[Rfam]
RNA sequence: AUAGCGGAUACCGAAAAGCUAAGAUAGAGUAGGUA
Numbered sequence: 001a002u003a004g005c006g007g008a009u010a011c012c013g014a015a016a017a018g019c020u021a022a023g024a025u026a027g028a029g030u031a032g033g034u035a
Stems, first nucleotide, its partner, number of pairs: 002021004010034003
RNA: DUF805b RNA